[Rfam]
Rfam assigns this 130-nucleotide sequence from Allobacillus sp. SKP2-8 to the family "PyrR binding site". Its family is annotated with pyrimidine nucleobase transport and pyrimidine nucleobase biosynthetic process in the Gene Ontology. The base pairs follow the family's consensus structure, which is taken from published work. Rfam's curators write: This family represents the PyrR binding site and terminator structure. This RNA structure is found upstream of a variety of genes involved in pyrimidine biosynthesis and transport. The alignment also includes a portion of the antiterminator structure. NCBI's taxonomy places the organism under Bacteria, Bacillati, Bacillota, Bacillaceae, Allobacillus. It scores 60 bits against the family's covariance model.

RNA sequence: GGUACCUUUAAUUCAGUCCAGAGAGACUGACAAGGACAACGGUUUAGAAAUGGGAUACGUGUAUGCACGUCGCAGCACGUCAUUCUAUUUCUAAAAGCUUCUUGUCGGUCGGACAAGGAGCUUUUUUUGU
Numbered sequence: 001g002g003u004a005c006c007u008u009u010a011a012u013u014c015a016g017u018c019c020a021g022a023g024a025g026a027c028u029g030a031c032a033a034g035g036a037c038a039a040c041g042g043u044u045u046a047g048a049a050a051u052g053g054g055a056u057a058c059g060u061g062u063a064u065g066c067a068c069g070u071c072g073c074a075g076c077a078c079g080u081c082a083u084u085c086u087a088u089u090u091c092u093a094a095a096a097g098c099u100u101c102u103u104g105u106c107g108g109u110c111g112g113a114c115a116a117g118g119a120g121c122u123u124u125u126u127u128u129g130u
Stems, first nucleotide, its partner, number of pairs: 005035004013030006048090009057080005093125014